[Rfam]
RNA: Glycine riboswitch aptamer
RNA sequence: CCGCUCUGGAAAGCGAUCCUCGCAGUGAGGGGAUCCGCCGACGGUGAAAGCCCGCACGUGCGUCGCCGCGCACCUAUCGGGUGAAACUCUCAGGCCCAUGACAGAGGGGGA
Numbered sequence: 001c002c003g004c005u006c007u008g009g010a011a012a013g014c015g016a017u018c019c020u021c022g023c024a025g026u027g028a029g030g031g032g033a034u035c036c037g038c039c040g041a042c043g044g045u046g047a048a049a050g051c052c053c054g055c056a057c058g059u060g061c062g063u064c065g066c067c068g069c070g071c072a073c074c075u076a077u078c079g080g081g082u083g084a085a086a087c088u089c090u091c092a093g094g095c096c097c098a099u100g101a102c103a104g105a106g107g108g109g110g111a
Stems, first nucleotide, its partner, number of pairs: 001109002004106005015035007037095003040091002044089001046087001050082005